[Rfam]
Nucleotides: 131
Stems, first nucleotide, its partner, number of pairs: 009121007022108004028102006048086001053080002056077002060073004
Number, partner (000 for none) and nucleotide at each position: 001000a002000a003000a004000a005000c006000g007000c008000a009121c010120a011119u012118u013117a014116a015115u016000g017000a018000u019000c020000u021000c022108u023107a024106g025105g026000g027000a028102c029101a030100u031099a032098g033097g034000a035000u036000a037000a038000a039000c040000a041000a042000a043000u044000a045000c046000c047000c048086u049000a050000c051000a052000a053080a054079a055000g056077c057076a058000a059000g060073u061072u062071a063070g064000c065000a066000c067000a068000c069000c070063c071062u072061a073060a074000a075000a076057u077056g078000g079054u080053u081000u082000u083000a084000g085000c086048a087000c088000g089000a090000u091000u092000a093000c094000u095000a096000a097033c098032c099031u100030a101029u102028g103000g104000g105025u106024c107023u108022g109000a110000u111000a112000c113000u114000a115015g116014u117013u118012g119011a120010u121009g122000a123000g124000a125000a126000a127000a128000a129000c130000c131000u